[Rfam]
RNA: Streptomyces RNA 3920
RNA sequence: GAUAGGCCUCUGUCGCUUCUGUGAUUGGACACUGACAGCGAGUCAAUUAGCCUAGGUCACACGGUUCUUCGCGCGCGCUGAACCGAAGGCGGUCCGAGCCGCGAGGGGGGAGGCUCGGACCGCCGUCG
Number, nucleotide and partner (000 for none) at each position: 001g014002a013003u012004a011005g010006g000007c000008c000009u000010c005011u004012g003013u002014c001015g051016c050017u049018u000019c000020u000021g032022u031023g030024a000025u000026u000027g000028g000029a000030c023031a022032c021033u045034g044035a043036c042037a000038g000039c000040g000041a000042g036043u035044c034045a033046a000047u000048u000049a017050g016051c015052c000053u000054a000055g000056g000057u000058c075059a000060c073061a000062c071063g070064g069065u000066u000067c000068u000069u064070c063071g062072c000073g060074c000075g058076c085077g084078c000079u000080g000081a000082a000083c000084c077085g076086a000087a000088g124089g123090c122091g121092g120093u119094c118095c117096g116097a115098g114099c113100c112101g000102c109103g000104a000105g000106g000107g000108g000109g102110g000111a000112g100113g099114c098115u097116c096117g095118g094119a093120c092121c091122g090123c089124c088125g000126u000127c000128g000